[Rfam]
Nucleotides: 147
Base pairs, nucleotide, nucleotide: 002024003023005021008018009017032050033049034048035046036045058147060145061144062143064076065075066074067073080141081140083138084137085136086135087134091128092127094124095123096121097120098119099118101117102116104113105112106111
Number, partner (000 for none) and nucleotide at each position: 001000g002024u003023u004000g005021c006000g007000c008018g009017g010000c011000c012000a013000g014000u015000a016000g017009u018008u019000c020000a021005g022000a023003a024002a025000g026000g027000c028000g029000a030000a031000a032050c033049c034048g035046c036045g037000c038000g039000c040000c041000u042000g043000g044000u045036c046035g047000a048034u049033g050032g051000c052000a053000u054000g055000a056000a057000a058147g059000a060145g061144c062143g063000g064076g065075u066074u067073c068000c069000a070000g071000u072000c073067g074066a075065a076064c077000a078000u079000c080141g081140c082000c083138a084137g085136c086135a087134u088000c089000g090000a091128c092127g093000g094124c095123g096121u097120g098119a099118g100000c101117a102116u103000g104113u105112u106111g107000g108000c109000c110000g111106c112105g113104a114000a115000c116102a117101u118099c119098u120097u121096g122000c123095c124094g125000g126000a127092c128091g129000c130000g131000a132000u133000c134087a135086u136085g137084u138083u139000c140081g141080c142000c143062c144061g145060u146000g147058u

The record is a 147-nucleotide RNA sequence from Roseivivax halotolerans, which matches "Ruegeria cis2 sRNA" in Rfam. The source organism's lineage runs through Bacteria, Pseudomonadota, Rhodobacterales, Roseobacteraceae and Roseivivax. The literature on the family includes a 2016 paper in Front Microbiol by Rivers et al., "Experimental Identification of Small Non-Coding RNAs in the Model Marine Bacterium Ruegeria pomeroyi DSS-3". The base pairs follow the family's consensus structure, which was predicted with RNAfold.